Rfam assigns this 73-nucleotide RNA from Buttiauxella agrestis to the family "MicA sRNA". Pairs were carried over by alignment from the consensus structure, which was predicted with WAR. Rfam links the family to the GO term mRNA binding. It scores 87 bits against the family's covariance model. A reference for the family is Udekwu et al. (2005), "Hfq-dependent regulation of OmpA synthesis is mediated by an antisense RNA", Genes Dev. NCBI's taxonomy places the organism under Bacteria, Pseudomonadati, Pseudomonadota, Gammaproteobacteria, Buttiauxella agrestis. It is annotated as a small RNA.
RNA sequence: GAAAGACGCGCAUUUGUUAUCAUCAUCCCUGAUUCAGAGAUGAAUAUUUUGGCCACACUCAUUGUGGCCUUUU
Numbered sequence: 001g002a003a004a005g006a007c008g009c010g011c012a013u014u015u016g017u018u019a020u021c022a023u024c025a026u027c028c029c030u031g032a033u034u035c036a037g038a039g040a041u042g043a044a045u046a047u048u049u050u051g052g053c054c055a056c057a058c059u060c061a062u063u064g065u066g067g068c069c070u071u072u073u
Stems, first nucleotide, its partner, number of pairs: 024042004029037003051069007